[Rfam]
Rfam assigns this 181-nucleotide RNA sequence from Phaeobacter sp. 22II1-1F12B to the family "Ruegeria cis52 sRNA". The organism belongs to Phaeobacter, within Bacteria.
RNA sequence: UGCGCAGCGCGUGCUUGAGCACGAUGUUCGAGAACUUCACCCCUUUGAGCCGGGCGGUGCGGAUAUAUUGCGCCGUCAUGACCUCGGUCAUCGAAGCGCGGGUCAUCCGGGCGAUAUAGCCCAUGCCAUAAAGCGAAAUCGUCAGCACCGGCAGAAAGAAAUUCUCGAAAUUGGCGUCUUC
Dot-bracket structure: .....(...(((..(((.(((......(.(.......(.(((...(((.(((.(((((((((.....))))))))......(.(((.....))).)).))).)))...))).).......).)))))).)..)))...).....(.(.((.(((.((....)).)......)).))..).)
Numbered sequence: 001u002g003c004g005c006a007g008c009g010c011g012u013g014c015u016u017g018a019g020c021a022c023g024a025u026g027u028u029c030g031a032g033a034a035c036u037u038c039a040c041c042c043c044u045u046u047g048a049g050c051c052g053g054g055c056g057g058u059g060c061g062g063a064u065a066u067a068u069u070g071c072g073c074c075g076u077c078a079u080g081a082c083c084u085c086g087g088u089c090a091u092c093g094a095a096g097c098g099c100g101g102g103u104c105a106u107c108c109g110g111g112c113g114a115u116a117u118a119g120c121c122c123a124u125g126c127c128a129u130a131a132a133g134c135g136a137a138a139u140c141g142u143c144a145g146c147a148c149c150g151g152c153a154g155a156a157a158g159a160a161a162u163u164c165u166c167g168a169a170a171u172u173g174g175c176g177u178c179u180u181c
Stems, first nucleotide, its partner, number of pairs: 006139001010135003015130001016128002019126003028123001030121001038113001040111003046105003050101003054097001055075008082096001084094003145181001147179001149176002152173002154165001156163002
The match comes from Rfam's covariance-model search (132 bits).